[Rfam]
RNA: Fluoride riboswitch aptamer (crcB RNA motif)
Organism: Dyadobacter psychrotolerans
RNA sequence: ACAAUUACAGGAAAUGGUGUCUUCCUGCGGAAACCGCCUUAAUAAGGCUGAUGGCGCCUAUUAGGAU
Numbered sequence: 001a002c003a004a005u006u007a008c009a010g011g012a013a014a015u016g017g018u019g020u021c022u023u024c025c026u027g028c029g030g031a032a033a034c035c036g037c038c039u040u041a042a043u044a045a046g047g048c049u050g051a052u053g054g055c056g057c058c059u060a061u062u063a064g065g066a067u
Stems, first nucleotide, its partner, number of pairs: 010025004016058006036048004